[Rfam]
RNA sequence: CUCUUAUCGAGAGCGGUGGAGGGACUGGCCCUGUGAAACCCGGCAACCAUACCAAUGGUGCUAAAUCCUGCAAAGCGGAAUGCUUUGAAAGAUGAGAG
Numbered sequence: 001c002u003c004u005u006a007u008c009g010a011g012a013g014c015g016g017u018g019g020a021g022g023g024a025c026u027g028g029c030c031c032u033g034u035g036a037a038a039c040c041c042g043g044c045a046a047c048c049a050u051a052c053c054a055a056u057g058g059u060g061c062u063a064a065a066u067c068c069u070g071c072a073a074a075g076c077g078g079a080a081u082g083c084u085u086u087g088a089a090a091g092a093u094g095a096g097a098g
Stems, first nucleotide, its partner, number of pairs: 001098008013041001015040003021031003025070001027068002042062004047058002066090001071087006
RNA: SAM riboswitch aptamer (S box leader)
Organism: Halalkalibacter oceani